The family of this 381-nucleotide sequence from Aestuariirhabdus litorea is "Pseudomonas sRNA CrcZ". It scores 102 bits against the family's covariance model. The family's RNA type in Rfam is small RNA.
RNA sequence: ACAAUAAAAAUAAAAACCCAUAACAAUAAGAACAACAGAACGCCCGCAUAAUAAAAAUAACAGGGGUAGAGCAAACUGAUUUUUUUGGAGAGGGGCCUUUUUAGUGGCCAGAUGAGCACUCUGCGGAGUGGCCGGAUAAUAAAAAGAUCGCGCAAGCGAGGAUAAUACCGGCAGGCAAAACAUGCUUCUCAACAACUGCCUCACCCAGCUUCCAAAAGAAUCCGCUUGCUGCUUGCAGGCCGUUUGGGCCUCAUACACCCGGGAGGGUGGAUUCAACAUAAUAAGAAUAAAAACGACAACAAGAACAACAGCAAAGCAUUUUUAUACAAGGAGGGCCCUGCCCUCCUUUUGCUUUACUGACGCGUCGAAAUUAUCCUGAAA
Numbered sequence: 001a002c003a004a005u006a007a008a009a010a011u012a013a014a015a016a017c018c019c020a021u022a023a024c025a026a027u028a029a030g031a032a033c034a035a036c037a038g039a040a041c042g043c044c045c046g047c048a049u050a051a052u053a054a055a056a057a058u059a060a061c062a063g064g065g066g067u068a069g070a071g072c073a074a075a076c077u078g079a080u081u082u083u084u085u086u087g088g089a090g091a092g093g094g095g096c097c098u099u100u101u102u103a104g105u106g107g108c109c110a111g112a113u114g115a116g117c118a119c120u121c122u123g124c125g126g127a128g129u130g131g132c133c134g135g136a137u138a139a140u141a142a143a144a145a146g147a148u149c150g151c152g153c154a155a156g157c158g159a160g161g162a163u164a165a166u167a168c169c170g171g172c173a174g175g176c177a178a179a180a181c182a183u184g185c186u187u188c189u190c191a192a193c194a195a196c197u198g199c200c201u202c203a204c205c206c207a208g209c210u211u212c213c214a215a216a217a218g219a220a221u222c223c224g225c226u227u228g229c230u231g232c233u234u235g236c237a238g239g240c241c242g243u244u245u246g247g248g249c250c251u252c253a254u255a256c257a258c259c260c261g262g263g264a265g266g267g268u269g270g271a272u273u274c275a276a277c278a279u280a281a282u283a284a285g286a287a288u289a290a291a292a293a294c295g296a297c298a299a300c301a302a303g304a305a306c307a308a309c310a311g312c313a314a315a316g317c318a319u320u321u322u323u324a325u326a327c328a329a330g331g332a333g334g335g336c337c338c339u340g341c342c343c344u345c346c347u348u349u350u351g352c353u354u355u356a357c358u359g360a361c362g363c364g365u366c367g368a369a370a371u372u373a374u375c376c377u378g379a380a381a
Stems, first nucleotide, its partner, number of pairs: 041065001043064002083217005099208001129174001131172005148159004237251004268364002272360002314354004328349001329347008